[Rfam]
RNA sequence: UAACCGCUGACGAUCAUCGUGAAUGUUG
Numbered sequence: 001u002a003a004c005c006g007c008u009g010a011c012g013a014u015c016a017u018c019g020u021g022a023a024u025g026u027u028g
Stems, first nucleotide, its partner, number of pairs: 001028004008023001010020004
Shown here is a 28-nucleotide RNA sequence, a member of the family "L19-Flavobacteria ribosomal protein leader". Rfam classes the family as a cis-regulatory leader. Pairs were carried over by alignment from the consensus structure, which is taken from published work. A reference for the family is Eckert and Weinberg (2020), "Discovery of 20 novel ribosomal leader candidates in bacteria and archaea", BMC Microbiol.